[Rfam]
The family of this 40-nucleotide RNA sequence from Lentivirus humimdef1 is "Human immunodeficiency virus type 1 dimerisation initiation site". Rfam classes the family as a cis-regulatory element. It is one of the family's seed sequences. The family's consensus secondary structure is taken from published work. The source organism's lineage runs through Viruses, Revtraviricetes, Retroviridae, Orthoretrovirinae and Lentivirus humimdef1. This cis element is composed of four hairpins called SL1 to SL4 (SL is for Stem Loop). This element is involved in encapsidation of the retroviral RNA an essential step in replication.

RNA sequence: GGACUCGGCUUGCUGAAGUGCACUCGGCAAGAGGCGAGGG
Numbered sequence: 001g002g003a004c005u006c007g008g009c010u011u012g013c014u015g016a017a018g019u020g021c022a023c024u025c026g027g028c029a030a031g032a033g034g035c036g037a038g039g040g
Stems, first nucleotide, its partner, number of pairs: 004038004009031007